RNA sequence: AAGAGCAGCGAAUCAAUCAAACUGAGAAGGUUGAUUCAACAAAAAA
Numbered sequence: 001a002a003g004a005g006c007a008g009c010g011a012a013u014c015a016a017u018c019a020a021a022c023u024g025a026g027a028a029g030g031u032u033g034a035u036u037c038a039a040c041a042a043a044a045a046a
Stems, first nucleotide, its partner, number of pairs: 010037008